Mammalian CPEB3 ribozyme: an 85-nucleotide RNA from Alligator mississippiensis. Taxonomically the source falls in Alligator (Eukaryota, Opisthokonta, Eumetazoa, Crocodylia). It scores 46 bits against the family's covariance model. For this family Rfam cites "A genomewide search for ribozymes reveals an HDV-like sequence in the human CPEB3 gene" (Salehi-Ashtiani et al., Science, 2006). The mammalian CPEB3 ribozyme is a self cleaving RNA located in the second intron of the CPEB3 gene which belongs to a family of genes regulating messenger RNA polyadenylation.
RNA sequence: AGAGGUUACAAGUUUCAGGCCACAGCAGAAGUGCUCAUGGCAUGGCAUGGCCCUGUCAGAUUUCAAUGAAUCUGUUAAUUCUGCU
Numbered sequence: 001a002g003a004g005g006u007u008a009c010a011a012g013u014u015u016c017a018g019g020c021c022a023c024a025g026c027a028g029a030a031g032u033g034c035u036c037a038u039g040g041c042a043u044g045g046c047a048u049g050g051c052c053c054u055g056u057c058a059g060a061u062u063u064c065a066a067u068g069a070a071u072c073u074g075u076u077a078a079u080u081c082u083g084c085u
Stems, first nucleotide, its partner, number of pairs: 018052004024085007031048005057074007